[Rfam]
RNA sequence: AAAUGUAGUUGACUAUAAGUAUACUUGGCAUAAUGCGUAUACUAAGUACACUACGUUUUC
Numbered sequence: 001a002a003a004u005g006u007a008g009u010u011g012a013c014u015a016u017a018a019g020u021a022u023a024c025u026u027g028g029c030a031u032a033a034u035g036c037g038u039a040u041a042c043u044a045a046g047u048a049c050a051c052u053a054c055g056u057u058u059u060c
Base pairs, nucleotide, nucleotide: 001058002057003056004055005054006053007052008051009050012047013046014045018043019042020041021040022039023038024037
A member of the RNA family "mir-728 microRNA precursor family" from Sinocyclocheilus anshuiensis, 60 nucleotides long. Lineage of the source: Eukaryota > Metazoa > Ostariophysi > Cyprininae > Sinocyclocheilus.